[Rfam]
Nucleotides: 071
Stems, first nucleotide, its partner, number of pairs: 010025004016062006032052008
Number, partner (000 for none) and nucleotide at each position: 001000u002000a003000a004000a005000u006000c007000c008000a009000c010025g011024g012023u013022g014000a015000u016062g017061g018060g019059g020058u021057u022013c023012a024011c025010c026000g027000g028000a029000a030000c031000c032052g033051c034050c035049u036048u037047g038046g039045a040000g041000a042000g043000g044000g045039u046038c047037u048036g049035a050034g051033g052032c053000u054000g055000a056000u057021a058020a059019c060018u061017c062016c063000u064000a065000c066000c067000u068000u069000g070000c071000c